The family of this 99-nucleotide sequence from Rhynchospora breviuscula is "Small nucleolar RNA Z157/R69/R10".
The base pairs follow the family's consensus structure, which was predicted with PFOLD.
The match comes from Rfam's covariance-model search (69 bits).
The organism belongs to Rhynchospora, within Eukaryota.
A reference for the family is Chen et al. (2003), "The high diversity of snoRNAs in plants: identification and comparative study of 120 snoRNA genes from Oryza sativa", Nucleic Acids Res.

RNA sequence: GAGGUUGUUAUGAGGAUGAAUAUUAUUUUGGACUAGAGUUUCUGAUAUUGGGUUUCUUACCCAUAGUUGAAGACUCACCCUUGCUGUCUGAGCACCACC
Dot-bracket structure: (..(.(((..............................((((...(((.((........)).)))...))))...................))).)..)
The family's RNA type in Rfam is C/D-box small nucleolar RNA.